sodF sRNA: a 93-nucleotide RNA sequence. Its family is annotated with regulation of mRNA stability, negative regulation of translation and mRNA binding in the Gene Ontology. It is annotated as a small RNA. The literature on the family includes a 2014 paper in Nucleic Acids Res by Kim et al., "Inverse regulation of Fe- and Ni-containing SOD genes by a Fur family regulator Nur through small RNA processed from 3'UTR of the sodF mRNA". It scores 82 bits against the family's covariance model. The pairing is the family consensus, mapped onto this sequence.

RNA sequence: CCGACAGCCUGCUCGUGAUCGUCUUCUCACCGUUCAUGGGGCAGGCGGUAUGAAGGAAGGCCCCCGCCAGGACGUGACUGGCGGGGGCCUUCC
Numbered sequence: 001c002c003g004a005c006a007g008c009c010u011g012c013u014c015g016u017g018a019u020c021g022u023c024u025u026c027u028c029a030c031c032g033u034u035c036a037u038g039g040g041g042c043a044g045g046c047g048g049u050a051u052g053a054a055g056g057a058a059g060g061c062c063c064c065c066g067c068c069a070g071g072a073c074g075u076g077a078c079u080g081g082c083g084g085g086g087g088c089c090u091u092c093c
Stems, first nucleotide, its partner, number of pairs: 001048003008045007015037004021031001055093016